[Rfam]
RNA: tRNA
RNA sequence: AGCCCCGUCGCCAAGUGGUAAGGCAUCUGACUCUGACUCAGACAUUCGGUGGUUCGAAUCCAUCCGGGGCUG
Numbered sequence: 001a002g003c004c005c006c007g008u009c010g011c012c013a014a015g016u017g018g019u020a021a022g023g024c025a026u027c028u029g030a031c032u033c034u035g036a037c038u039c040a041g042a043c044a045u046u047c048g049g050u051g052g053u054u055c056g057a058a059u060c061c062a063u064c065c066g067g068g069g070c071u072g
Stems, first nucleotide, its partner, number of pairs: 001071007010024003026042005048064005